[Rfam]
The family of this 57-nucleotide RNA sequence from Ziziphus jujuba is "Plastid-ndhJ 3UTR RNA".
The base pairs follow the family's consensus structure, which was predicted with LocARNA.
Rfam's curators write: Plastid ndhJ is a non-coding RNA (ncRNA) present in plastids. It was identified as a short stem-loop motif in the 3 prime untranslate region (3UTR) of ndhJ gene.
Rfam 15.1 lists 869 matches to the family in 155 species.
RNA sequence: UGCAGAACUGUGUACCGCACACAUCACUUGGAUGUGUUUCAGAAAGUAACAACCCAG
Numbered sequence: 001u002g003c004a005g006a007a008c009u010g011u012g013u014a015c016c017g018c019a020c021a022c023a024u025c026a027c028u029u030g031g032a033u034g035u036g037u038u039u040c041a042g043a044a045a046g047u048a049a050c051a052a053c054c055c056a057g
Stems, first nucleotide, its partner, number of pairs: 019037002022034004
Dot-bracket structure: ..................((.((((.....)))).))....................